RNA sequence: UAUUAGCUUGGUGCAAAAGUAAUUGAAGUUUUUGCCAUUGAGAGUAAUGGCAAAAACUGCAAUUACUUUUGCACCAAACUAAUA
Number, nucleotide and partner (000 for none) at each position: 001u084002a083003u082004u081005a080006g079007c000008u077009u076010g075011g074012u073013g072014c071015a070016a069017a068018a067019g066020u065021a064022a063023u062024u061025g060026a000027a058028g057029u056030u055031u054032u053033u052034g051035c050036c049037a048038u047039u046040g045041a000042g000043a000044g000045u040046a039047a038048u037049g036050g035051c034052a033053a032054a031055a030056a029057c028058u027059g000060c025061a024062a023063u022064u021065a020066c019067u018068u017069u016070u015071g014072c013073a012074c011075c010076a009077a008078a000079c006080u005081a004082a003083u002084a001
A member of the RNA family "mir-548 microRNA precursor family" from Theropithecus gelada, 84 nucleotides long. A reference for the family is Witten et al. (2010), "Ultra-high throughput sequencing-based small RNA discovery and discrete statistical biomarker analysis in a collection of cervical tumours and matched controls", BMC Biol. It scores 94 bits against the family's covariance model.